[Rfam]
RNA: MIR812 microRNA precursor family
RNA sequence: AAUAAAUGAAUUUCUAUGUUUUUAGAUAAAUUUUUUGACUUUUCGUCUUAUUUGAAAAAUUUUUGUGAUUAAUAUUUUUAUUGUUACUAUAUGGUAAAACAUGAAUAGUACUUUACGUGCGACUAUUUUUUUCAACUUUUUAAUAAAUUUUUUAAAUAAGACGGAUGGUCAAACGCUUGACCUAGAAUACCCAGA
Numbered sequence: 001a002a003u004a005a006a007u008g009a010a011u012u013u014c015u016a017u018g019u020u021u022u023u024a025g026a027u028a029a030a031u032u033u034u035u036u037g038a039c040u041u042u043u044c045g046u047c048u049u050a051u052u053u054g055a056a057a058a059a060u061u062u063u064u065g066u067g068a069u070u071a072a073u074a075u076u077u078u079u080a081u082u083g084u085u086a087c088u089a090u091a092u093g094g095u096a097a098a099a100c101a102u103g104a105a106u107a108g109u110a111c112u113u114u115a116c117g118u119g120c121g122a123c124u125a126u127u128u129u130u131u132u133c134a135a136c137u138u139u140u141u142a143a144u145a146a147a148u149u150u151u152u153u154a155a156a157u158a159a160g161a162c163g164g165a166u167g168g169u170c171a172a173a174c175g176c177u178u179g180a181c182c183u184a185g186a187a188u189a190c191c192c193a194g195a
Stems, first nucleotide, its partner, number of pairs: 027180001029178002032175001034173007042165010